The family of this 74-nucleotide sequence from Trabulsiella odontotermitis is "Repression of heat shock gene expression (ROSE) element". Lineage of the source: Bacteria > Pseudomonadati > Gammaproteobacteria > Enterobacterales > Trabulsiella. A reference for the family is Balsiger et al. (2004), "Replicon-specific regulation of small heat shock genes in Agrobacterium tumefaciens", J Bacteriol. Rfam links the family to the GO terms response to temperature stimulus and regulation of translation. It scores 73 bits against the family's covariance model.
[Rfam]
RNA sequence: UCCGGGCAAACGACCUGUCCAAGAUGGAAGGUGAUUAAACACUCGCUGAUUUCAGGAGCUUUUUACUAUGCGUA
Numbered sequence: 001u002c003c004g005g006g007c008a009a010a011c012g013a014c015c016u017g018u019c020c021a022a023g024a025u026g027g028a029a030g031g032u033g034a035u036u037a038a039a040c041a042c043u044c045g046c047u048g049a050u051u052u053c054a055g056g057a058g059c060u061u062u063u064u065a066c067u068a069u070g071c072g073u074a
Stems, first nucleotide, its partner, number of pairs: 013032004018028003038064002042058003046055003
From the family's description: This family represents a 5' UTR cis-regulatory element found in heat shock mRNAs and is known as the ROSE (repression of heat shock gene expression) element. The ROSE element is a negative regulator of heat shock gene expression. The secondary structure is thought to be regulated by temperature.
Rfam classes the family as an RNA thermoregulator.